HNH endonuclease-associated RNA and ORF (HEARO) RNA: a 225-nucleotide RNA sequence from Candidatus Methylacidiphilum infernorum. The sequence is in the family's curated seed alignment. The literature on the family includes a 2009 paper in Nature by Weinberg et al., "Exceptional structured noncoding RNAs revealed by bacterial metagenome analysis". Pairs were carried over by alignment from the consensus structure, which is taken from published work.
RNA sequence: GUCAACCACCCCCGACUGAAUUCGGAGGCUUGCCUUACGGCCAUGCCUGGGUUGACAAGGAAAAGCGGUACCCAACCCGCUGCGUUGCAAGGAGUAGAGGAGACCCUCGUCGGGAUGCUUCCUCAGUCCCGACCUCUAGAAGCCGGGGUUGCAGACAACCCUGAGAGCAUGGGCGCUGGCGGGCUCCGGCAGACGGCCGACAUGCAACAUUCCCGAAGGGGAGAC
Numbered sequence: 001g002u003c004a005a006c007c008a009c010c011c012c013c014g015a016c017u018g019a020a021u022u023c024g025g026a027g028g029c030u031u032g033c034c035u036u037a038c039g040g041c042c043a044u045g046c047c048u049g050g051g052u053u054g055a056c057a058a059g060g061a062a063a064a065g066c067g068g069u070a071c072c073c074a075a076c077c078c079g080c081u082g083c084g085u086u087g088c089a090a091g092g093a094g095u096a097g098a099g100g101a102g103a104c105c106c107u108c109g110u111c112g113g114g115a116u117g118c119u120u121c122c123u124c125a126g127u128c129c130c131g132a133c134c135u136c137u138a139g140a141a142g143c144c145g146g147g148g149u150u151g152c153a154g155a156c157a158a159c160c161c162u163g164a165g166a167g168c169a170u171g172g173g174c175g176c177u178g179g180c181g182g183g184c185u186c187c188g189g190c191a192g193a194c195g196g197c198c199g200a201c202a203u204g205c206a207a208c209a210u211u212c213c214c215g216a217a218g219g220g221g222a223g224a225c
Stems, first nucleotide, its partner, number of pairs: 001056007010028002012025002015022001029045001031043002059214002062211002064081005084208006094201002097198001107140002109133008118223006142190009151180002153177002
It is annotated as a non-coding RNA gene.